[Rfam]
RNA: Bacterial large subunit ribosomal RNA, nucleotides 1694 to 2053
RNA sequence: UGAGAGAACUCUGGUUAAGGAACUCGGCAAAAUUACCCCGUAACUUCGGGAGAAGGGGUGCCACUCUUGGUGAGCGUAUUUACUUCGCAAGCUUCGAGUGGUCGCAGAGAAAUGGCGGUGGCGACUGUUUACUAAAAACAUAGGACUCUGCUAAGUCGUAAGACGACGUAUAGGGUCUGACGCCUGCCCGGUGCUGGAAGGUUAAGAGGAGAUGUCAGCGCAAGCGAAGCAUUGAAUUGAAGCCCCAGUAAACGGCGGCCGUAACUAUAACGGUCCUAAGGUAGCGAAAUUCCUUGUCGGGUAAGUUCCGACCUGCACGAAUGGCGUAACGAUCUCCGCACUGUCUCGACCAGAGACUCA
Number, nucleotide and partner (000 for none) at each position: 001u360002g359003a358004g357005a000006g000007a000008a000009c355010u354011c353012u352013g351014g350015u349016u348017a000018a346019g345020g344021a000022a000023c000024u000025c000026g000027g000028c000029a000030a000031a000032a000033u000034u000035a059036c058037c057038c056039c055040g000041u000042a000043a000044c049045u000046u000047c000048g000049g044050g000051a000052g000053a000054a000055g039056g038057g037058g036059u035060g102061c101062c100063a099064c098065u097066c000067u000068u000069g000070g000071u000072g000073a080074g079075c000076g000077u000078a000079u074080u073081u000082a000083c000084u000085u000086c000087g000088c000089a000090a000091g000092c000093u000094u000095c000096g000097a065098g064099u063100g062101g061102u060103c107104g000105c000106a000107g103108a000109g000110a000111a000112a000113u000114g000115g339116c338117g337118g336119u000120g334121g333122c331123g330124a000125c000126u140127g139128u138129u000130u000131a000132c000133u000134a000135a000136a000137a000138a128139c127140a126141u000142a000143g178144g177145a176146c175147u174148c173149u172150g171151c168152u000153a000154a000155g164156u163157c162158g000159u000160a000161a000162g157163a156164c155165g000166a000167c000168g151169u000170a000171u150172a149173g148174g147175g146176u145177c144178u143179g000180a000181c326182g325183c324184c323185u000186g256187c255188c254189c000190g000191g253192u252193g249194c248195u247196g246197g245198a000199a000200g244201g243202u242203u000204a000205a000206g238207a237208g000209g000210a000211g233212a232213u231214g230215u229216c000217a000218g225219c224220g000221c000222a000223a000224g219225c218226g000227a000228a000229g215230c214231a213232u212233u211234g000235a000236a000237u207238u206239g000240a000241a000242g202243c201244c200245c197246c196247a195248g194249u193250a000251a000252a192253c191254g188255g187256c186257g275258g274259c273260c272261g271262u270263a000264a000265c000266u000267a000268u000269a000270a262271c261272g260273g259274u258275c257276c280277u000278a000279a000280g276281g000282u000283a000284g000285c000286g313287a000288a000289a000290u000291u000292c000293c000294u000295u000296g312297u311298c310299g309300g308301g307302u000303a000304a000305g000306u000307u301308c300309c299310g298311a297312c296313c286314u000315g000316c000317a000318c000319g000320a000321a000322u000323g184324g183325c182326g181327u000328a000329a000330c123331g122332a000333u121334c120335u000336c118337c117338g116339c115340a000341c000342u000343g000344u020345c019346u018347c000348g016349a015350c014351c013352a012353g011354a010355g009356a000357c004358u003359c002360a001